Overview: A member of the RNA family "Lysine riboswitch aptamer" from Clostridium tyrobutyricum, 182 nucleotides long. Rfam's curators write: Riboswitches are metabolite binding domains within certain messenger RNAs that serve as precision sensors for their corresponding targets. A search with the family's covariance model found it, with a score of 106 bits.

RNA sequence: ACCUAGGGUAGAGGUGCUGUAAUUAAGAGUAUUUGAUUUUAGCUGGCAGGUGUUAUUAAAUUCAAAGAAAGGAAUUACAGCCGAAGGAGAUAAUUUGGCGGGAUUAUCUUUUGGACUUGUAUAGAAUAUAUUCAGGUCUGUCACUAGAUUUAAAUUAUUUUUAGUGGAGAGCUACAAAGGUA
Numbered sequence: 001a002c003c004u005a006g007g008g009u010a011g012a013g014g015u016g017c018u019g020u021a022a023u024u025a026a027g028a029g030u031a032u033u034u035g036a037u038u039u040u041a042g043c044u045g046g047c048a049g050g051u052g053u054u055a056u057u058a059a060a061u062u063c064a065a066a067g068a069a070a071g072g073a074a075u076u077a078c079a080g081c082c083g084a085a086g087g088a089g090a091u092a093a094u095u096u097g098g099c100g101g102g103a104u105u106a107u108c109u110u111u112u113g114g115a116c117u118u119g120u121a122u123a124g125a126a127u128a129u130a131u132u133c134a135g136g137u138c139u140g141u142c143a144c145u146a147g148a149u150u151u152a153a154a155u156u157a158u159u160u161u162u163a164g165u166g167g168a169g170a171g172c173u174a175c176a177a178a179g180g181u182a
Stems, first nucleotide, its partner, number of pairs: 008175004016081009032066005038060002085112012113139007121131003141167007